[Rfam]
RNA sequence: UGGACCAGUGAUGGUGACUGGUGGUGUGUGAGUCAUGCACAGUGAAUAUCAUGUGUCUGGAACUCUGAGGUCCAA
Numbered sequence: 001u002g003g004a005c006c007a008g009u010g011a012u013g014g015u016g017a018c019u020g021g022u023g024g025u026g027u028g029u030g031a032g033u034c035a036u037g038c039a040c041a042g043u044g045a046a047u048a049u050c051a052u053g054u055g056u057c058u059g060g061a062a063c064u065c066u067g068a069g070g071u072c073c074a075a
Stems, first nucleotide, its partner, number of pairs: 002073005

Overview
A member of the RNA family "Small nucleolar RNA SNORD113/SNORD114 family", 75 nucleotides long. Rfam's curators write: The imprinted human domain at 14q32 contains two clusters of tandemly repeated small nucleolar RNAs named 14q(I) and 14q(II) snoRNAs. A reference for the family is Cavaille et al. (2002), "Identification of tandemly-repeated C/D snoRNA genes at the imprinted human 14q32 domain reminiscent of those at the Prader-Willi/Angelman syndrome region", Hum Mol Genet. Its family is annotated with RNA processing and nucleolus in the Gene Ontology.